[Rfam]
RNA sequence: AAGUGAAGAGAAGGCAAGAUGUCGGCAUAGCUGAGUGUGUUUGAUAUUCCGGCUGUGUCACAUCGGGCCAGCUCUCACUUC
Numbered sequence: 001a002a003g004u005g006a007a008g009a010g011a012a013g014g015c016a017a018g019a020u021g022u023c024g025g026c027a028u029a030g031c032u033g034a035g036u037g038u039g040u041u042u043g044a045u046a047u048u049c050c051g052g053c054u055g056u057g058u059c060a061c062a063u064c065g066g067g068c069c070a071g072c073u074c075u076c077a078c079u080u081c
Stems, first nucleotide, its partner, number of pairs: 007075004013069003018064004024059008